[Rfam]
RNA sequence: CCAUGGGGACGACCCCACUGUACCAUGUUUUAUUUUGAGGACGACUUCA
Numbered sequence: 001c002c003a004u005g006g007g008g009a010c011g012a013c014c015c016c017a018c019u020g021u022a023c024c025a026u027g028u029u030u031u032a033u034u035u036u037g038a039g040g041a042c043g044a045c046u047u048c049a
Base pairs, nucleotide, nucleotide: 001020004017005016006015007014008013036049037048038047039046040045